[Rfam]
Purine riboswitch aptamer: a 102-nucleotide RNA from Pontibacillus chungwhensis.
RNA sequence: UUGCAACUUAAUUGUUCCCUUCGUAUAUCCUCGAUAAUAUGGUUCGAGAGUCUCUACCGGAGCACCGAUAAUGCUCUGACUAUGAAGGUGGGAGUCGUGUAU
Numbered sequence: 001u002u003g004c005a006a007c008u009u010a011a012u013u014g015u016u017c018c019c020u021u022c023g024u025a026u027a028u029c030c031u032c033g034a035u036a037a038u039a040u041g042g043u044u045c046g047a048g049a050g051u052c053u054c055u056a057c058c059g060g061a062g063c064a065c066c067g068a069u070a071a072u073g074c075u076c077u078g079a080c081u082a083u084g085a086a087g088g089u090g091g092g093a094g095u096c097g098u099g100u101a102u
Base pairs, nucleotide, nucleotide: 018088019087020086021085022084023083024082025081030048031047032046033045034044058078059077060076061075062074063073064072

The base pairs follow the family's consensus structure, which is taken from published work.